[Rfam]
The family of this 200-nucleotide RNA sequence from Ruegeria sp. ANG-S4 is "FMN riboswitch aptamer (RFN element)". Pairs were carried over by alignment from the consensus structure, which is taken from published work. The match comes from Rfam's covariance-model search (105 bits). Rfam describes the family as follows. The RFN element is a highly conserved domain that is found frequently in the 5'-untranslated regions of prokaryotic mRNAs that encode for flavin mononucleotide (FMN) biosynthesis and transport proteins. Rfam 15.1 lists 6,230 matches to the family in 5,120 species.
RNA sequence: CGGCGUUCUCAGGGCGGGGCGAAAUUCCCCACCGGCGGUAUGCGGGCAUGGACCCGUAAGCCCGCGAGCGGCCCCGCAGCGUCCACAAUCCGAAAAGUGGGAACCGGUUUUCGGACAGAUCGUGGAACCACCAAGGGGUGUCAGCAGAUCUGGUGAGAGGCCAGAGCCGACGGUUAUAGUCCGGAUGAAAGAGAAUGCGC
Numbered sequence: 001c002g003g004c005g006u007u008c009u010c011a012g013g014g015c016g017g018g019g020c021g022a023a024a025u026u027c028c029c030c031a032c033c034g035g036c037g038g039u040a041u042g043c044g045g046g047c048a049u050g051g052a053c054c055c056g057u058a059a060g061c062c063c064g065c066g067a068g069c070g071g072c073c074c075c076g077c078a079g080c081g082u083c084c085a086c087a088a089u090c091c092g093a094a095a096a097g098u099g100g101g102a103a104c105c106g107g108u109u110u111u112c113g114g115a116c117a118g119a120u121c122g123u124g125g126a127a128c129c130a131c132c133a134a135g136g137g138g139u140g141u142c143a144g145c146a147g148a149u150c151u152g153g154u155g156a157g158a159g160g161c162c163a164g165a166g167c168c169g170a171c172g173g174u175u176a177u178a179g180u181c182c183g184g185a186u187g188a189a190a191g192a193g194a195a196u197g198c199g200c
Stems, first nucleotide, its partner, number of pairs: 003198008017029003031180002033169002035065004060167002068145002149165005171183003